Annotation:
The record is a 109-nucleotide RNA from Alkalihalophilus pseudofirmus, which matches "SAM riboswitch aptamer (S box leader)" in Rfam. The match comes from Rfam's covariance-model search (89 bits).
RNA sequence: CUCUUAUCAAGAGCGACCGAGGGACAGGCCCUAUGACGUCCGGCAACCUCUAAGUUUCAUACUUAGUCGGUGCUAAAUCCUGCAGAGCUAUGGCUCUGAAAGAUAAGAG
Number, nucleotide and partner (000 for none) at each position: 001c109002u108003c107004u106005u105006a104007u103008c102009a000010a000011g000012a000013g041014c000015g040016a039017c038018c000019g000020a000021g031022g030023g029024a000025c082026a081027g080028g079029c023030c022031c021032u000033a000034u000035g000036a000037c000038g017039u016040c015041c013042g074043g073044c072045a071046a000047c070048c069049u000050c066051u065052a064053a063054g000055u000056u000057u000058c000059a000060u000061a000062c000063u053064u052065a051066g050067u000068c000069g048070g047071u045072g044073c043074u042075a000076a000077a000078u101079c028080c027081u026082g025083c098084a097085g096086a095087g094088c093089u000090a000091u000092g000093g088094c087095u086096c085097u084098g083099a000100a000101a078102g008103a007104u006105a005106a004107g003108a002109g001
The organism belongs to Alkalihalophilus pseudofirmus, within Bacteria. On this family, see Grundy and Henkin, Mol Microbiol 1998: "The S box regulon: a new global transcription termination control system for methionine and cysteine biosynthesis genes in gram-positive bacteria".